The family of this 105-nucleotide RNA from Canis lupus is "mir-8834 microRNA precursor family". Lineage of the source: Eukaryota > Eumetazoa > Bilateria > Teleostomi > Canis lupus. Pairs were carried over by alignment from the consensus structure, which was predicted with RNAalifold. The family has 2 seed sequences and 13,926 matches in Rfam 15.1. The sequence is in the family's curated seed alignment.
[Rfam]
RNA sequence: AGGAGCUACAGCCCUAGUGGCGGGGCCAGCUCUGGAAACCUGGAUUCAGCUCUGGCAGGAACUCCGGAGCUCUCCGUCUGCCGGGCCUGGAGGCUCCGGGGCGGG
Numbered sequence: 001a002g003g004a005g006c007u008a009c010a011g012c013c014c015u016a017g018u019g020g021c022g023g024g025g026c027c028a029g030c031u032c033u034g035g036a037a038a039c040c041u042g043g044a045u046u047c048a049g050c051u052c053u054g055g056c057a058g059g060a061a062c063u064c065c066g067g068a069g070c071u072c073u074c075c076g077u078c079u080g081c082c083g084g085g086c087c088u089g090g091a092g093g094c095u096c097c098g099g100g101g102c103g104g105g
Stems, first nucleotide, its partner, number of pairs: 002097006009089003012085003019078007028071009039059004